[Rfam]
RNA sequence: GGUACCUUUAAUUCAGUCCCGUGAGGCUGACAAGGACAGCGGAAAUUUAUUGGAUAAGUGGGGGCAUCUUUGCCCGUAUUUAUCCAAUCUUAAAGAGGCUUCCUGUCAGUAAUGGCAGGAAGCCUCUUUUA
Dot-bracket structure: ....((((....((((((......)))))).)))).................((((((((.(((((....))))).))))))))..........((((((((((((((....)))))))))))))).....
Notes:
The family of this 131-nucleotide RNA sequence from Peribacillus saganii is "PyrR binding site". The match comes from Rfam's covariance-model search (67 bits). Taxonomically the source falls in Peribacillus (Bacteria, Bacillati, Bacillota, Bacilli). This family represents the PyrR binding site and terminator structure. This RNA structure is found upstream of a variety of genes involved in pyrimidine biosynthesis and transport. The alignment also includes a portion of the antiterminator structure.